The family of this 87-nucleotide sequence from Paenibacillus sp. UNCCL117 is "c-di-GMP-I riboswitch aptamer".
The base pairs follow the family's consensus structure, which is taken from published work.

RNA sequence: CACGAUAAACGGCAAACCUGUCGAAAGAUGGGGACGCAAAGCUAAAGGGCCUACCCUCCAUCGGGAGCACGGCAGCCAGUUACCGAA
Numbered sequence: 001c002a003c004g005a006u007a008a009a010c011g012g013c014a015a016a017c018c019u020g021u022c023g024a025a026a027g028a029u030g031g032g033g034a035c036g037c038a039a040a041g042c043u044a045a046a047g048g049g050c051c052u053a054c055c056c057u058c059c060a061u062c063g064g065g066a067g068c069a070c071g072g073c074a075g076c077c078a079g080u081u082a083c084c085g086a087a
Stems, first nucleotide, its partner, number of pairs: 012037002017032006040081004047077002049073003056067004

Background: GEMM was predicted in a large-scale screen for bacterial structured RNA regulatory elements.